[Rfam]
RNA sequence: UAGGUUUGUCCUAAUUCAAACUUGAUUAACUUUGACCAAGUCUAGCUAUAGAAAAUAUAGCAACAACUAUAAUAUCCAAUAUAUAUUUUAUGGUGGAUUCAAUUAAACAAAUUUGGUAUUGUAAAUGUUACUAUUUCUUUCUAUAAGUUUGGUCAAAAUUUGUCAUGUUUGACUUAGGACAAACCUAA
Numbered sequence: 001u002a003g004g005u006u007u008g009u010c011c012u013a014a015u016u017c018a019a020a021c022u023u024g025a026u027u028a029a030c031u032u033u034g035a036c037c038a039a040g041u042c043u044a045g046c047u048a049u050a051g052a053a054a055a056u057a058u059a060g061c062a063a064c065a066a067c068u069a070u071a072a073u074a075u076c077c078a079a080u081a082u083a084u085a086u087u088u089u090a091u092g093g094u095g096g097a098u099u100c101a102a103u104u105a106a107a108c109a110a111a112u113u114u115g116g117u118a119u120u121g122u123a124a125a126u127g128u129u130a131c132u133a134u135u136u137c138u139u140u141c142u143a144u145a146a147g148u149u150u151g152g153u154c155a156a157a158a159u160u161u162g163u164c165a166u167g168u169u170u171g172a173c174u175u176a177g178g179a180c181a182a183a184c185c186u187a188a
Stems, first nucleotide, its partner, number of pairs: 005183005011177004016172006023165004031157005049143006058133003062129004068123004075116002078113003

This 188-nucleotide RNA sequence from Panicum virgatum belongs to the Rfam family "MIR1435 microRNA precursor family". The base pairs follow the family's consensus structure, which was predicted with RNAalifold. Rfam 15.1 lists 1,765 matches to the family in 31 species. A search with the family's covariance model found it, with a score of 107 bits.